A member of the RNA family "Small nucleolar RNA SNORA33" from Neomonachus schauinslandi, 130 nucleotides long.
RNA sequence: AAGCCAGCCAAUUAAUCUGCUUACCUGAAUGUGCUUCUGCAGAAAUUUAGAAAAUGCUGGCAAUAGGAAUGCCAUGUUAUGUGUCUUAAAAACCUUGAAGUCCUUAAGGUCCCUGAAAAUGGCUAUAAGA
Numbered sequence: 001a002a003g004c005c006a007g008c009c010a011a012u013u014a015a016u017c018u019g020c021u022u023a024c025c026u027g028a029a030u031g032u033g034c035u036u037c038u039g040c041a042g043a044a045a046u047u048u049a050g051a052a053a054a055u056g057c058u059g060g061c062a063a064u065a066g067g068a069a070u071g072c073c074a075u076g077u078u079a080u081g082u083g084u085c086u087u088a089a090a091a092a093c094c095u096u097g098a099a100g101u102c103c104u105u106a107a108g109g110u111c112c113c114u115g116a117a118a119a120u121g122g123c124u125a126u127a128a129g130a
Base pairs, nucleotide, nucleotide: 003061004060005059006058007057016043017042018041019040020039071123072122073121074120083110084109085108086107087106088105089104092101093100
NCBI's taxonomy places the organism under Eukaryota, Laurasiatheria, Carnivora, Phocidae, Neomonachus. Rfam describes the family as follows. ACA33 is a member of the H/ACA class of snoRNA that guide the sites of modification of uridines to pseudouridines. Its family is annotated with nucleolus and RNA processing in the Gene Ontology. The family has 28 seed sequences and 1,176 matches in Rfam 15.1. The match comes from Rfam's covariance-model search (139 bits).